[Rfam]
RNA: Bacterial RNase P class A
RNA sequence: UGAGUUGGUUAGACAAUCGCUGGUUUAUUGAAGCCCUUAACCGUAGUAAUACGACCUAGUGGGACAAGUGAACGAGAGGAAAGUCCGAGCUACACAGGGCAGAGUGCCAGAUAACGUCUGGGAGGCGUGAGCCUACGACUAGUGCAACAGAGAGCAGACCGCCAGUUUCGGCUGGUAAGGGUGAAAGGGUGCGGUAAGAGCGCACCGCGUGGGUGGUAACAUUCCAUGGCACGGUAAACUCCACUCGUAGCAAGACCAAAUAGGAACUCAAUGGGUGUGCCCGCUCAGAGUUCGGGUAGGUUGCUUGAGCGUAUGUGCGAAUAUGCGCCUAGAGGAAUGAUUGUCCGCGACAGAACUCGGCUUAUCGACCAACUCACCUC
Numbered sequence: 001u002g003a004g005u006u007g008g009u010u011a012g013a014c015a016a017u018c019g020c021u022g023g024u025u026u027a028u029u030g031a032a033g034c035c036c037u038u039a040a041c042c043g044u045a046g047u048a049a050u051a052c053g054a055c056c057u058a059g060u061g062g063g064a065c066a067a068g069u070g071a072a073c074g075a076g077a078g079g080a081a082a083g084u085c086c087g088a089g090c091u092a093c094a095c096a097g098g099g100c101a102g103a104g105u106g107c108c109a110g111a112u113a114a115c116g117u118c119u120g121g122g123a124g125g126c127g128u129g130a131g132c133c134u135a136c137g138a139c140u141a142g143u144g145c146a147a148c149a150g151a152g153a154g155c156a157g158a159c160c161g162c163c164a165g166u167u168u169c170g171g172c173u174g175g176u177a178a179g180g181g182u183g184a185a186a187g188g189g190u191g192c193g194g195u196a197a198g199a200g201c202g203c204a205c206c207g208c209g210u211g212g213g214u215g216g217u218a219a220c221a222u223u224c225c226a227u228g229g230c231a232c233g234g235u236a237a238a239c240u241c242c243a244c245u246c247g248u249a250g251c252a253a254g255a256c257c258a259a260a261u262a263g264g265a266a267c268u269c270a271a272u273g274g275g276u277g278u279g280c281c282c283g284c285u286c287a288g289a290g291u292u293c294g295g296g297u298a299g300g301u302u303g304c305u306u307g308a309g310c311g312u313a314u315g316u317g318c319g320a321a322u323a324u325g326c327g328c329c330u331a332g333a334g335g336a337a338u339g340a341u342u343g344u345c346c347g348c349g350a351c352a353g354a355a356c357u358c359g360g361c362u363u364a365u366c367g368a369c370c371a372a373c374u375c376a377c378c379u380c
Stems, first nucleotide, its partner, number of pairs: 001376010011365001012345007020076002023073006081363003085360005090250004097281001099280002102246005107121005122136001123134004137241002142239002144235002159180002161176006188206006207230001208228005213222003254302004264293006275286001277284002309328008